The family of this 172-nucleotide RNA sequence from Mediterraneibacter hominis is "Lysine riboswitch aptamer".

[Rfam]
RNA sequence: AACGUAGAUAGAGGUUGCAUUUUUCAUCAGUAGGAUGCCGGAUGUUUCAGGGACAGAAGAAGACAUUCAAAAGGGAAAGAUGCCGAAAGACUAGGCUGCCUGACAUUUUAGUCUUGGGCAUGGCGUGAAAAACGACAUGACUGUCAUCGCAGGAUGGAGGGCUAUCUGAUUU
Numbered sequence: 001a002a003c004g005u006a007g008a009u010a011g012a013g014g015u016u017g018c019a020u021u022u023u024u025c026a027u028c029a030g031u032a033g034g035a036u037g038c039c040g041g042a043u044g045u046u047u048c049a050g051g052g053a054c055a056g057a058a059g060a061a062g063a064c065a066u067u068c069a070a071a072a073g074g075g076a077a078a079g080a081u082g083c084c085g086a087a088a089g090a091c092u093a094g095g096c097u098g099c100c101u102g103a104c105a106u107u108u109u110a111g112u113c114u115u116g117g118g119c120a121u122g123g124c125g126u127g128a129a130a131a132a133c134g135a136c137a138u139g140a141c142u143g144u145c146a147u148c149g150c151a152g153g154a155u156g157g158a159g160g161g162c163u164a165u166c167u168g169a170u171u172u
Stems, first nucleotide, its partner, number of pairs: 006167006017083009033068005039062001087115009097105002116142002119139004124134003144157005
Overview
The match comes from Rfam's covariance-model search (109 bits). Rfam links the family to the GO term lysine biosynthetic process.